Overview:
ArcZ RNA: a 109-nucleotide sequence from Klebsiella pneumoniae. The family's RNA type in Rfam is small RNA. This RNA was discovered in E. coli during a large scale screen. SraH expression is highly abundant in stationary phase, but low levels could be detected in exponentially growing cells as well. Rfam's curators put it in the seed alignment. NCBI's taxonomy places the organism under Bacteria, Enterobacteriaceae, Klebsiella pneumoniae complex, Klebsiella pneumoniae, Klebsiella pneumoniae subsp. pneumoniae.
RNA sequence: GAGCAAUCCACUUCUUCGGUUGCGCCACGUAACAACAUCACUCAAACAACACUGGCUCAACCACCAGUUCCCUGGUGUUGGCGCAGUAUUCGCGCACCCCGGUCUGUCC
Numbered sequence: 001g002a003g004c005a006a007u008c009c010a011c012u013u014c015u016u017c018g019g020u021u022g023c024g025c026c027a028c029g030u031a032a033c034a035a036c037a038u039c040a041c042u043c044a045a046a047c048a049a050c051a052c053u054g055g056c057u058c059a060a061c062c063a064c065c066a067g068u069u070c071c072c073u074g075g076u077g078u079u080g081g082c083g084c085a086g087u088a089u090u091c092g093c094g095c096a097c098c099c100c101g102g103u104c105u106g107u108c109c
Base pairs, nucleotide, nucleotide: 019061020060021059022058024056025055026054074098075097076096081095082094083093084092